[Rfam]
RNA: Small nucleolar RNA SNORD66
Organism: Ornithorhynchus anatinus
RNA sequence: CUCCGCUGACGAAUGCUUGUUUGAGCCAUCGUGUCUGGGCCACUGACACCCCGUGAUGGAACUGAGGAUCUGAGGAG
Numbered sequence: 001c002u003c004c005g006c007u008g009a010c011g012a013a014u015g016c017u018u019g020u021u022u023g024a025g026c027c028a029u030c031g032u033g034u035c036u037g038g039g040c041c042a043c044u045g046a047c048a049c050c051c052c053g054u055g056a057u058g059g060a061a062c063u064g065a066g067g068a069u070c071u072g073a074g075g076a077g
Stems, first nucleotide, its partner, number of pairs: 001077004
Dot-bracket structure: ((((.....................................................................))))